[Rfam]
A member of the RNA family "mir-135 microRNA precursor family" from Albula goreensis, 86 nucleotides long. Rfam links the family to the GO terms gene silencing by miRNA and RISC complex. For this family Rfam cites "Identification of many microRNAs that copurify with polyribosomes in mammalian neurons" (Kim et al., Proc Natl Acad Sci U S A, 2004). A search with the family's covariance model found it, with a score of 76 bits.
RNA sequence: CGUUCAUUGCUCUGUAUGGCUUUAUAUUCCUAUCUGACUGUACUCAGGUUUCAUAUAGGGAUGGAAGCCAUGCAGUGCGAUGGACC
Numbered sequence: 001c002g003u004u005c006a007u008u009g010c011u012c013u014g015u016a017u018g019g020c021u022u023u024a025u026a027u028u029c030c031u032a033u034c035u036g037a038c039u040g041u042a043c044u045c046a047g048g049u050u051u052c053a054u055a056u057a058g059g060g061a062u063g064g065a066a067g068c069c070a071u072g073c074a075g076u077g078c079g080a081u082g083g084a085c086c
Base pairs, nucleotide, nucleotide: 002085003084004083005082006081007080008079009078010077012075013074014073015072016071017070018069019068020067021066022065023064026062027061028060029059030058031057032056033055035053036052037051